[Rfam]
RNA sequence: GUACAUCCAGUAGGAAUUAAACCUACGAAGUCGCCAAUUAUGAGUUGGACGCUUUAACCAUUUAACAAUGGAUGC
Numbered sequence: 001g002u003a004c005a006u007c008c009a010g011u012a013g014g015a016a017u018u019a020a021a022c023c024u025a026c027g028a029a030g031u032c033g034c035c036a037a038u039u040a041u042g043a044g045u046u047g048g049a050c051g052c053u054u055u056a057a058c059c060a061u062u063u064a065a066c067a068a069u070g071g072a073u074g075c
Stems, first nucleotide, its partner, number of pairs: 004074005010026005040069002044066006051059001
This 75-nucleotide RNA from Olea europaea belongs to the Rfam family "Plastid-ycf2 5UTR RNA". For this family Rfam cites "Retrograde signaling in plants: A critical review focusing on the GUN pathway and beyond" (Richter et al., Plant Commun, 2023). The source organism's lineage runs through Eukaryota, Viridiplantae, Streptophyta, asterids and Olea europaea. The family's consensus secondary structure was predicted with LocARNA. By type it is a cis-regulatory element. Rfam's curators write: Plastid ycf2 is a non-coding RNA (ncRNA) recognised in plastids.